[Rfam]
RNA: chrB-b RNA
RNA sequence: CGGGGACAUCGCAGCCUCCCCAUCAAAUGGUGAUCCCAUUCAAGCGCUGC
Numbered sequence: 001c002g003g004g005g006a007c008a009u010c011g012c013a014g015c016c017u018c019c020c021c022a023u024c025a026a027a028u029g030g031u032g033a034u035c036c037c038a039u040u041c042a043a044g045c046g047c048u049g050c
Stems, first nucleotide, its partner, number of pairs: 002021005011050005026040005